[Rfam]
RNA sequence: UCUGGCAGUGAUGACACACUUGCCCUCACUGAGAGCAGCCUUUGCUGCUGAGAGCGUUCCCACGUGCUUGAGUGGAGCUGAGCCAGA
Numbered sequence: 001u002c003u004g005g006c007a008g009u010g011a012u013g014a015c016a017c018a019c020u021u022g023c024c025c026u027c028a029c030u031g032a033g034a035g036c037a038g039c040c041u042u043u044g045c046u047g048c049u050g051a052g053a054g055c056g057u058u059c060c061c062a063c064g065u066g067c068u069u070g071a072g073u074g075g076a077g078c079u080g081a082g083c084c085a086g087a
Stems, first nucleotide, its partner, number of pairs: 001087006

Rfam assigns this 87-nucleotide RNA sequence from Rostratula benghalensis to the family "Small nucleolar RNA SNORD103/SNORD85". The literature on the family includes a 2001 paper in EMBO J by Huttenhofer et al., "RNomics: an experimental approach that identifies 201 candidates for novel, small, non-messenger RNAs in mouse". Lineage of the source: Eukaryota > Bilateria > Tetrapoda > Theropoda > Rostratula. Rfam links the family to the GO terms RNA processing and nucleolus. Pairs were carried over by alignment from the consensus structure.